[Rfam]
RNA sequence: GCAGACAAACUCUGUUCUUUGCUGUCUCUCCAGUCUAGAACUUUUUAUGUCUGCUACAUAAUAGCCAGAAUAUAUCAACUACUGGCUUUUUUUGUAAGAAGCUGGUUUUGAUGUGUACUGCGACACGUGC
Number, nucleotide and partner (000 for none) at each position: 001g054002c053003a052004g051005a050006c049007a000008a000009a000010c000011u000012c000013u000014g041015u040016u039017c038018u037019u000020u000021g000022c033023u032024g031025u000026c000027u000028c000029u000030c000031c024032a023033g022034u000035c000036u000037a018038g017039a016040a015041c014042u000043u000044u000045u000046u000047a000048u000049g006050u005051c004052u003053g002054c001055u000056a000057c000058a000059u000060a000061a000062u000063a000064g000065c000066c120067a119068g118069a000070a116071u115072a000073u113074a112075u111076c110077a109078a108079c000080u000081a000082c000083u000084g106085g000086c104087u000088u000089u000090u000091u000092u000093u000094g000095u000096a000097a000098g000099a000100a000101g000102c000103u000104g086105g000106u084107u000108u078109u077110g076111a075112u074113g073114u000115g071116u070117a000118c068119u067120g066121c000122g000123a000124c000125a000126c000127g000128u000129g000130c000
The record is a 130-nucleotide sequence from Muraenolepis orangiensis, which matches "Small nucleolar RNA SNORA77" in Rfam. The family's RNA type in Rfam is H/ACA-box small nucleolar RNA. The family's consensus secondary structure was predicted with RNAalifold. Lineage of the source: Eukaryota > Opisthokonta > Neoteleostei > Gadiformes > Muraenolepis. On this family, see Schattner et al., RNA 2006: "A computational screen for mammalian pseudouridylation guide H/ACA RNAs". Gene Ontology terms of the family: RNA processing and nucleolus. From the family's description: ACA63 (SNORA77) is a member of the H/ACA class of snoRNAs that guide the sites of modification of uridines to pseudouridines. This snoRNA was identified by computational screening and its expression in mouse experimentally verified by Northern blot and primer extension analysis. ACA63 is proposed to guide the pseudouridylation of 18S rRNA U814.